[Rfam]
RNA sequence: CCCCUGGGGGUUGCGAUCCCCUCACGAGGCUACGGCCGAAGCAUCGCGUCCAGGUUCGCUUUUCAAGCCGGGGACGCGCCAUG
Numbered sequence: 001c002c003c004c005u006g007g008g009g010g011u012u013g014c015g016a017u018c019c020c021c022u023c024a025c026g027a028g029g030c031u032a033c034g035g036c037c038g039a040a041g042c043a044u045c046g047c048g049u050c051c052a053g054g055u056u057c058g059c060u061u062u063u064c065a066a067g068c069c070g071g072g073g074a075c076g077c078g079c080c081a082u083g
Stems, first nucleotide, its partner, number of pairs: 005024006046077006
A member of the RNA family "chrB-a RNA" from Alsobacter soli, 83 nucleotides long. Rfam 15.1 lists 347 matches to the family in 339 species. The source organism's lineage runs through Bacteria, Pseudomonadati, Pseudomonadota, Alsobacteraceae and Alsobacter. Rfam classes the family as a cis-regulatory element.